The record is a 134-nucleotide RNA sequence from Acholeplasma brassicae, which matches "c-di-AMP riboswitch aptamer (ydaO/yuaA leader)" in Rfam. The match comes from Rfam's covariance-model search (92 bits).

RNA sequence: AACAUGAUAUCUCCGAACUUCAUUUUUACAAGAUGGGGGAACCAAUUUUUUGGGGUGAAUCUUCUUAACUGAAGAAGGGCGAUUUGGGCGCCCUAAUCCGUCAGCUAACCUCACAGGAGUACACCAAAGCGUAU
Numbered sequence: 001a002a003c004a005u006g007a008u009a010u011c012u013c014c015g016a017a018c019u020u021c022a023u024u025u026u027u028a029c030a031a032g033a034u035g036g037g038g039g040a041a042c043c044a045a046u047u048u049u050u051u052g053g054g055g056u057g058a059a060u061c062u063u064c065u066u067a068a069c070u071g072a073a074g075a076a077g078g079g080c081g082a083u084u085u086g087g088g089c090g091c092c093c094u095a096a097u098c099c100g101u102c103a104g105c106u107a108a109c110c111u112c113a114c115a116g117g118a119g120u121a122c123a124c125c126a127a128a129g130c131g132u133a134u
Stems, first nucleotide, its partner, number of pairs: 011119004018032003034113005043052002053099003061074004077093004